Rfam assigns this 69-nucleotide RNA sequence from Papaver somniferum to the family "Plastid-clpP 5UTR RNA". The family's RNA type in Rfam is cis-regulatory element. The literature on the family includes a 2023 paper in Plant Commun by Richter et al., "Retrograde signaling in plants: A critical review focusing on the GUN pathway and beyond". The family has 343 seed sequences and 2,105 matches in Rfam 15.1. The source organism's lineage runs through Eukaryota, Viridiplantae, Ranunculales, Papaveroideae and Papaver. About the family: Plastid clpP is a non-coding RNA (ncRNA) recognised in plastids. It was found in the prime untranslated region (5UTR) of a protease complex subunit (clpP) in plastids, suggesting a posible cis-regulatory function.
[Rfam]
RNA sequence: AAUUUUGUUUGUAGGAACAAAGAGAAGCAAAUCUAUUCUAUAUCGGAUAAGUACCGAUACGUAAUGGGG
Number, nucleotide and partner (000 for none) at each position: 001a000002a000003u022004u021005u000006u019007g018008u017009u016010u015011g000012u000013a000014g000015g010016a009017a008018c007019a006020a000021a004022g003023a000024g000025a000026a000027g000028c000029a000030a000031a000032u000033c000034u000035a000036u000037u000038c000039u000040a000041u000042a000043u068044c067045g000046g000047a000048u000049a000050a000051g060052u059053a058054c000055c000056g000057a000058u053059a052060c051061g000062u000063a000064a000065u000066g000067g044068g043069g000